[Rfam]
The family of this 142-nucleotide RNA from Actinomyces gaoshouyii is "FMN riboswitch aptamer (RFN element)". Its family is annotated with FMN binding in the Gene Ontology. Lineage of the source: Bacteria > Actinomycetota > Actinomycetales > Actinomycetaceae > Actinomyces.
RNA sequence: AACGUGCUCCGGGGUCGGUGGAAAUCCGAGCCGGCGGUGAGAGUCCGCGACCCGAGCCCUCCGCUCGCCGGGCGGAUCGGCUCGGCUGAGCCGGUGGGAUUCCGGCACCGACGGUGAGAGUCCGGAUGGGAGGAAGCACGGG
Numbered sequence: 001a002a003c004g005u006g007c008u009c010c011g012g013g014g015u016c017g018g019u020g021g022a023a024a025u026c027c028g029a030g031c032c033g034g035c036g037g038u039g040a041g042a043g044u045c046c047g048c049g050a051c052c053c054g055a056g057c058c059c060u061c062c063g064c065u066c067g068c069c070g071g072g073c074g075g076a077u078c079g080g081c082u083c084g085g086c087u088g089a090g091c092c093g094g095u096g097g098g099a100u101u102c103c104g105g106c107a108c109c110g111a112c113g114g115u116g117a118g119a120g121u122c123c124g125g126a127u128g129g130g131a132g133g134a135a136g137c138a139c140g141g142g
Stems, first nucleotide, its partner, number of pairs: 003140006009133002016028003030121002032110002034048004043108002052085007090106005112124003